The family of this 138-nucleotide RNA from Carlito syrichta is "U12 minor spliceosomal RNA". It scores 79 bits against the family's covariance model.
RNA sequence: UCCCCUUAAAUUUAUGAAUAAGGAAAAUAACAAUUCAGGGCAAUGCCUGAAUCCUCACUGCUAAUGUGAGACAAAUUCUUGAGCAGGUAAAGGUGACCCGUCUACUUUGCAAGAUACCUGGGAGUCGCCAUCUGCCCG
Numbered sequence: 001u002c003c004c005c006u007u008a009a010a011u012u013u014a015u016g017a018a019u020a021a022g023g024a025a026a027a028u029a030a031c032a033a034u035u036c037a038g039g040g041c042a043a044u045g046c047c048u049g050a051a052u053c054c055u056c057a058c059u060g061c062u063a064a065u066g067u068g069a070g071a072c073a074a075a076u077u078c079u080u081g082a083g084c085a086g087g088u089a090a091a092g093g094u095g096a097c098c099c100g101u102c103u104a105c106u107u108u109g110c111a112a113g114a115u116a117c118c119u120g121g122g123a124g125u126c127g128c129c130a131u132c133u134g135c136c137c138g
Stems, first nucleotide, its partner, number of pairs: 004023005033052007054070005084138001086136003091133005097127001098122002101109001